[Rfam]
RNA sequence: AAGCACAUAGGCAAACUGCAGGCAACUGCAGGACGCAAAGCCACGGGUCCUCCGCGUUGAGGAUAGCCGGGUUGCCCGAC
Numbered sequence: 001a002a003g004c005a006c007a008u009a010g011g012c013a014a015a016c017u018g019c020a021g022g023c024a025a026c027u028g029c030a031g032g033a034c035g036c037a038a039a040g041c042c043a044c045g046g047g048u049c050c051u052c053c054g055c056g057u058u059g060a061g062g063a064u065a066g067c068c069g070g071g072u073u074g075c076c077c078g079a080c
Base pairs, nucleotide, nucleotide: 003077011036012035016031017030018029019028020027021026034066039073040072041071042070044069045068046067047064048063049062
Dot-bracket structure: ..(.......((...((((((....))))))..[))..((((.((((((............))).])))))))...)...
Annotation:
The record is an 80-nucleotide RNA sequence from Zoogloea ramigera, which matches "c-di-GMP-I-GGC riboswitch aptamer" in Rfam. Pairs were carried over by alignment from the consensus structure, which is taken from published work. Taxonomically the source falls in Zoogloea (Bacteria, Pseudomonadati, Pseudomonadota, Zoogloeaceae).